This 147-nucleotide RNA from Propithecus coquereli belongs to the Rfam family "Small nucleolar RNA SNORA57".
Rfam 15.1 lists 1,736 matches to the family in 530 species.
Taxonomically the source falls in Propithecus (Eukaryota, Metazoa, Euteleostomi, Tetrapoda).
U99 belongs to the H/ACA class of snoRNAs which are thought to guide the sites of modification of uridines to pseudouridines, the target for this family is unknown.
The family's consensus secondary structure was predicted with PFOLD.
For this family Rfam cites "Identification of 13 novel human modification guide RNAs" (Vitali et al., Nucleic Acids Res, 2003).

RNA sequence: CCUCCUUUUCUUGGCGGGGGCCGGGUGUAGGGCCCACUCUCCUUUAUGGAUGGAGGCAGAGGGAAGGGGCUCUGGCCCCUCAGUGUCGCGUCUUCAGUGGCGGGGGCUUCCCUUCCUCCGGUUCUAUCCUCAAGCACCAGGGCACCA
Number, nucleotide and partner (000 for none) at each position: 001c056002c055003u054004c053005c052006u000007u000008u000009u000010c000011u000012u000013g000014g000015c000016g042017g041018g040019g039020g038021c000022c000023g035024g034025g033026u000027g000028u000029a000030g000031g000032g000033c025034c024035c023036a000037c000038u020039c019040u018041c017042c016043u000044u000045u000046a000047u000048g000049g000050a000051u000052g005053g004054a003055g002056g001057c000058a000059g000060a000061g000062g000063g000064a000065a000066g000067g000068g000069g000070c000071u000072c000073u000074g000075g000076c000077c000078c000079c000080u000081c000082a000083g137084u136085g135086u134087c000088g000089c000090g000091u000092c000093u000094u000095c000096a000097g000098u000099g000100g000101c120102g119103g118104g117105g116106g115107c000108u000109u000110c000111c000112c000113u000114u000115c106116c105117u104118c103119c102120g101121g000122u000123u000124c000125u000126a000127u000128c000129c000130u000131c000132a000133a000134g086135c085136a084137c083138c000139a000140g000141g000142g000143c000144a000145c000146c000147a000